[Rfam]
Nucleotides: 127
Base pairs, nucleotide, nucleotide: 003056004055005054006053007052009050010049011048017044018043019042020041021040022039023038024035025034026033068119069118070117071116072115073114074113079109080108081107082106083105084104085103086102
Number, partner (000 for none) and nucleotide at each position: 001000c002000u003056g004055g005054a006053g007052g008000c009050u010049a011048a012000g013000g014000a015000a016000a017044c018043a019042g020041a021040g022039u023038c024035c025034u026033u027000a028000a029000a030000g031000u032000c033026a034025a035024g036000c037000u038023g039022g040021c041020u042019c043018u044017g045000c046000u047000u048011u049010u050009a051000a052007c053006c054005u055004c056003c057000u058000a059000a060000a061000u062000g063000g064000a065000a066000a067000c068119g069118u070117a071116g072115a073114u074113a075000g076000a077000a078000c079109a080108g081107g082106u083105c084104u085103u086102g087000u088000u089000u090000g091000c092000a093000a094000a095000a096000u097000a098000a099000a100000u101000g102086c103085a104084a105083g106082a107081c108080c109079u110000a111000c112000u113074u114073a115072u116071c117070u118069a119068u120000c121000a122000a123000c124000a125000g126000c127000a
Rfam assigns this 127-nucleotide RNA from Aotus nancymaae to the family "Small Cajal body specific RNA 15". The source organism's lineage runs through Eukaryota, Deuterostomia, Mammalia, Eutheria and Aotus. The family's RNA type in Rfam is small Cajal body RNA. Pairs were carried over by alignment from the consensus structure, which was predicted with RNAfold. A search with the family's covariance model found it, with a score of 123 bits. For this family Rfam cites "Cajal body-specific small nuclear RNAs: a novel class of 2'-O-methylation and pseudouridylation guide RNAs" (Darzacq et al., EMBO J, 2002). The family is grouped with related families in Rfam's "SCARNA4 clan". Rfam describes the family as follows. scaRNAs are a specific class of small nuclear RNAs which localise to the Cajal bodies and guide the modification of RNA polymerase II transcribed spliceosomal RNAs U1, U2, U4, U5 and U12. ACA45 belongs to the H/ACA box class of guide RNAs as it has the predicted hairpin-hinge-hairpin-tail structure, the conserved H/ACA-box motifs and is found associated with GAR1. ACA45 is predicted to guide the pseudouridylation of residue U37 of the U2 spliceosomal snRNA.